[Rfam]
RNA sequence: AAAUGCUUUGUUCACAAGCAGUAAAUGAGUGAACCUCAAGCCUAUCUUGGAAUACGGCAGAGCGUUAUUUCUGAACGGCAAAUCAUGGCACUAGGAAGUAAACGUAUGAUAGGUGAGAGUAAAGAAAACGCACUAACCAAGCGUAGUAUACAGUGGCGUGUAAUCACGCAAACAUCGAGGUUCUGGAAAAACCGAUGUAAAAUAAAUAACAGCACCCGUUUAGCGAGCGUGGUGGGAGGCGUGAUAGGCU
Numbered sequence: 001a002a003a004u005g006c007u008u009u010g011u012u013c014a015c016a017a018g019c020a021g022u023a024a025a026u027g028a029g030u031g032a033a034c035c036u037c038a039a040g041c042c043u044a045u046c047u048u049g050g051a052a053u054a055c056g057g058c059a060g061a062g063c064g065u066u067a068u069u070u071c072u073g074a075a076c077g078g079c080a081a082a083u084c085a086u087g088g089c090a091c092u093a094g095g096a097a098g099u100a101a102a103c104g105u106a107u108g109a110u111a112g113g114u115g116a117g118a119g120u121a122a123a124g125a126a127a128a129c130g131c132a133c134u135a136a137c138c139a140a141g142c143g144u145a146g147u148a149u150a151c152a153g154u155g156g157c158g159u160g161u162a163a164u165c166a167c168g169c170a171a172a173c174a175u176c177g178a179g180g181u182u183c184u185g186g187a188a189a190a191a192c193c194g195a196u197g198u199a200a201a202a203u204a205a206a207u208a209a210c211a212g213c214a215c216c217c218g219u220u221u222a223g224c225g226a227g228c229g230u231g232g233u234g235g236g237a238g239g240c241g242u243g244a245u246a247g248g249c250u
Base pairs, nucleotide, nucleotide: 010034011033012032013031014030015029035119036118037117042112043111044110045109046108054105055104056103065101066100067099068098069097070096071095072094128144129143130142131141156169157168158167159166160165173197174196175195176194177193213234214233215232216231217229218228219227220226
RNA: EGFOA-assoc-1 RNA